[Rfam]
RNA: Yersinia sRNA 276
Organism: Duffyella gerundensis
RNA sequence: CACCGACAUCAGCGAUUCAUUCUGUGAGCCUGCGCCCACCGCCAGGUAAGCGUGCAUCCCCAGCUCUUUCAUCUGCUGCUCGCCAAUCACGCGCGUGGUGAUGUUUUUGCUGUAGGCAUCGGCCAGCUGGCGCGCCUGCGAAGCAAGAUAAGCGGGAUUACAGAUAUUUGGCGGCAUAUUACCAAGGUCUUUCGC
Dot-bracket structure: ....(((......(.(((((...))))).)...((.....)).......(........)..(((..........)))((.(((((.(...((..(((.((.((....)).))....)))..))..).))))).))(((.((..(..........)..)).)))...(((((..........))))))))......